[Rfam]
RNA: Pseudomonas sRNA P36
RNA sequence: CAAACUGUUACCCAAUACAGGUUUAGUAACAAAAACCGGGUCUAAUGGUAACGAGAGCCCG
Numbered sequence: 001c002a003a004a005c006u007g008u009u010a011c012c013c014a015a016u017a018c019a020g021g022u023u024u025a026g027u028a029a030c031a032a033a034a035a036c037c038g039g040g041u042c043u044a045a046u047g048g049u050a051a052c053g054a055g056a057g058c059c060c061g
Stems, first nucleotide, its partner, number of pairs: 006031006014024002037061005043055001046053002